A member of the RNA family "BsrG" from Anaerobacillus isosaccharinicus, 265 nucleotides long.
On this family, see Meissner et al., J Biol Chem 2016: "In Vitro Characterization of the Type I Toxin-Antitoxin System bsrE/SR5 from Bacillus subtilis".
The source organism's lineage runs through Bacteria, Bacillati, Bacillota, Caryophanales and Anaerobacillus.
[Rfam]
RNA sequence: CAACUACAUAAAGCAGGGUGGCGGCUGAACCCCUUUGGAAAGGGGGUGACGCUUUUGACGACAUUUGAGGCAUUUAGUCUUAUAGCUCAAUUUGGCAUAUUACAAAUAGCAGCUUUUACACUGAUCGUAACUAUUGUCGUCUAUUUAAACAAAAAGAAAUAGCCACCCUGACAGCCAAGUAAGGGGGCUAUUUCUAUAGUUUUCCAUUGGUCAGCCGCUAUCGCUGCGGCAUGUGGUUGUACGACUGAGUGUACCAGCACUCGGU
Numbered sequence: 001c002a003a004c005u006a007c008a009u010a011a012a013g014c015a016g017g018g019u020g021g022c023g024g025c026u027g028a029a030c031c032c033c034u035u036u037g038g039a040a041a042g043g044g045g046g047u048g049a050c051g052c053u054u055u056u057g058a059c060g061a062c063a064u065u066u067g068a069g070g071c072a073u074u075u076a077g078u079c080u081u082a083u084a085g086c087u088c089a090a091u092u093u094g095g096c097a098u099a100u101u102a103c104a105a106a107u108a109g110c111a112g113c114u115u116u117u118a119c120a121c122u123g124a125u126c127g128u129a130a131c132u133a134u135u136g137u138c139g140u141c142u143a144u145u146u147a148a149a150c151a152a153a154a155a156g157a158a159a160u161a162g163c164c165a166c167c168c169u170g171a172c173a174g175c176c177a178a179g180u181a182a183g184g185g186g187g188c189u190a191u192u193u194c195u196a197u198a199g200u201u202u203u204c205c206a207u208u209g210g211u212c213a214g215c216c217g218c219u220a221u222c223g224c225u226g227c228g229g230c231a232u233g234u235g236g237u238u239g240u241a242c243g244a245c246u247g248a249g250u251g252u253a254c255c256a257g258c259a260c261u262c263g264g265u
Stems, first nucleotide, its partner, number of pairs: 001239003005235003009231001013212001014170008026049001028047001030045005057141007072083001093133003181200001214230004244265009
bsrE, bsrG and bsrH pair through intermolecular interactions with antisense sRNAs. They form type I toxin/antitoxin system that includes an mRNA encoding for a short, toxic peptide (bsrE, bsrG and bsrH) and an antitoxin that is comprised of an antisense RNA. bsrG encodes a 39-amino-acid toxin, and the 180 nucleotide antisense sRNA called SR4 acts as the antitoxin (they overlap by 123 nucleotides). SR4 interaction with the 3'UTR of bsrG RNA promotes bsrG degradation and inhibits its translation. BsrG interferes with cell envelope biosynthesis, causes membrane invaginations and delocalisation of the cell wall synthesis and initiates autolysis. bsrE RNA encodes 30 amino-acid toxin peptide. The base pairs follow the family's consensus structure, which was predicted with WAR. The match comes from Rfam's covariance-model search (60 bits).